[Rfam]
The family of this 78-nucleotide sequence from Escherichia coli is "Nucleoid-associated noncoding RNA 4 (CssrE)". Rfam's curators write: In E. coli small RNA transcribed from repeated extragenic palindromic element (REP325) called nucleoid-associated ncRNA 4 (nRNA4) collaborates HU protein in condensing the DNA. The secondary structure but not the sequence of the RNA is important in nucleoid condensation. Also identified in Shigella as CssrE. Rfam classes the family as a small RNA. Rfam links the family to the GO terms bacterial nucleoid, protein binding and bacterial nucleoid DNA packaging. Rfam 15.1 lists 870 matches to the family in 32 species.
RNA sequence: GGCCGGAUAAGGCGUUCACGCCGCAUCCGGCGGUUGUGUACCGGUGCCAGAUGCGACGCAGACGCGUCUUAUCAUGCC
Dot-bracket structure: .(((((((..((((....))))..)))))))..............((..((((.(((((....))))).))))..)).